Annotation
A member of the RNA family "MIR5387 microRNA precursor family" from Sorghum bicolor, 94 nucleotides long. Rfam 15.1 lists 1,029 matches to the family in 9 species. Rfam links the family to the GO terms RISC complex and miRNA-mediated post-transcriptional gene silencing.

[Rfam]
RNA sequence: UUGUAACACGAACCGGUGCUAAAGGGUCCCUGCCCCGACGGCCCCUGUCAGUAACAGGUGGGUGGGACCCUUGAGCACCGGUUCGUGUUACGAA
Numbered sequence: 001u002u003g004u005a006a007c008a009c010g011a012a013c014c015g016g017u018g019c020u021a022a023a024g025g026g027u028c029c030c031u032g033c034c035c036c037g038a039c040g041g042c043c044c045c046u047g048u049c050a051g052u053a054a055c056a057g058g059u060g061g062g063u064g065g066g067a068c069c070c071u072u073g074a075g076c077a078c079c080g081g082u083u084c085g086u087g088u089u090a091c092g093a094a
Base pairs, nucleotide, nucleotide: 003091004090005089006088007087008086009085010084011083012082013081014080015079016078017077018076019075020074022072023071024070025069026068027067029065030064034062035061036060039057045051046050